[Rfam]
RNA sequence: GCAUGGGUUUGGAUUUAUGGCAGGCUCUUCCCCAUGGGCCUCUCAUAGUGUCCCAUGCCAGAGCAAACUGUAGCCCUGAACCAUUGCUUGGCCUCCUUACCCAUAGGCUGCAGCACUGAAGCGGGUUGCACACUA
Numbered sequence: 001g002c003a004u005g006g007g008u009u010u011g012g013a014u015u016u017a018u019g020g021c022a023g024g025c026u027c028u029u030c031c032c033c034a035u036g037g038g039c040c041u042c043u044c045a046u047a048g049u050g051u052c053c054c055a056u057g058c059c060a061g062a063g064c065a066a067a068c069u070g071u072a073g074c075c076c077u078g079a080a081c082c083a084u085u086g087c088u089u090g091g092c093c094u095c096c097u098u099a100c101c102c103a104u105a106g107g108c109u110g111c112a113g114c115a116c117u118g119a120a121g122c123g124g125g126u127u128g129c130a131c132a133c134u135a
Stems, first nucleotide, its partner, number of pairs: 001058004005053004015048006022041003025037002071128006082118002087113002089110006
Small nucleolar RNA SNORA42/SNORA80 family: a 135-nucleotide RNA from Chrysochloris asiatica. The literature on the family includes a 2006 paper in RNA by Schattner et al., "A computational screen for mammalian pseudouridylation guide H/ACA RNAs". The family's RNA type in Rfam is H/ACA-box small nucleolar RNA. The match comes from Rfam's covariance-model search (144 bits). Taxonomically the source falls in Chrysochloris (Eukaryota, Vertebrata, Afrotheria, Afrosoricida).